[Rfam]
RNA sequence: UGCUCAUCCAGAGGGGUGGAGGGAUCGGCCCGAUGAAGCCCCGGCAACCAUCCCGGUGACAUGUGCCUUAGCCGAUGAUUCGAGGCCGCCCGGGACAGGUGCCAACUCCGACCCACGGUCGUAGGGGCCGCUGGGAAAGAUGAGGA
Numbered sequence: 001u002g003c004u005c006a007u008c009c010a011g012a013g014g015g016g017u018g019g020a021g022g023g024a025u026c027g028g029c030c031c032g033a034u035g036a037a038g039c040c041c042c043g044g045c046a047a048c049c050a051u052c053c054c055g056g057u058g059a060c061a062u063g064u065g066c067c068u069u070a071g072c073c074g075a076u077g078a079u080u081c082g083a084g085g086c087c088g089c090c091c092g093g094g095a096c097a098g099g100u101g102c103c104a105a106c107u108c109c110g111a112c113c114c115a116c117g118g119u120c121g122u123a124g125g126g127g128c129c130g131c132u133g134g135g136a137a138a139g140a141u142g143a144g145g146a
Stems, first nucleotide, its partner, number of pairs: 001146001003144006013042005021031003025111004043103004048099002051095006107138001112135004
The record is a 146-nucleotide sequence from a Streptosporangiales bacterium, which matches "SAM riboswitch aptamer (S box leader)" in Rfam. The SAM riboswitch is found upstream of a number of genes which code for proteins involved in methionine or cysteine biosynthesis in Gram-positive bacteria. The SAM riboswitch acts at the level of transcription termination control. The predicted structure consists of a complex stem-loop region followed by a single stem loop terminator region. The match comes from Rfam's covariance-model search (77 bits).